Shown here is a 54-nucleotide sequence from Triplophysa tibetana, a member of the family "UnaL2 LINE 3' element".
RNA sequence: UGUGUAAUGCAAUGUAAGUCGCUUUGGAUAAAAGCGUCUGCCAAAUGCAUAAAU
Numbered sequence: 001u002g003u004g005u006a007a008u009g010c011a012a013u014g015u016a017a018g019u020c021g022c023u024u025u026g027g028a029u030a031a032a033a034g035c036g037u038c039u040g041c042c043a044a045a046u047g048c049a050u051a052a053a054u
Base pairs, nucleotide, nucleotide: 013043014041015040016039020036021035022034023033024032025031